RNA sequence: UAGUCGGCCUCGCGCUGCUGCCCGACCCCCGACCCGGCAGCCGCGCGAGGCCUCACUA
Numbered sequence: 001u002a003g004u005c006g007g008c009c010u011c012g013c014g015c016u017g018c019u020g021c022c023c024g025a026c027c028c029c030c031g032a033c034c035c036g037g038c039a040g041c042c043g044c045g046c047g048a049g050g051c052c053u054c055a056c057u058a
Base pairs, nucleotide, nucleotide: 002057003056004055007051008050009049010048011047012046013045014044015043017041018040019039020038021037022036
This 58-nucleotide RNA from Antrihabitans auranticaus belongs to the Rfam family "F6 TB sRNA". It scores 54 bits against the family's covariance model. The base pairs follow the family's consensus structure, which is taken from published work. It is annotated as a small RNA. For this family Rfam cites "Identification of small RNAs in Mycobacterium tuberculosis" (Arnvig and Young, Mol Microbiol, 2009). The source organism's lineage runs through Bacteria, Bacillati, Actinomycetota, Mycobacteriales and Antrihabitans.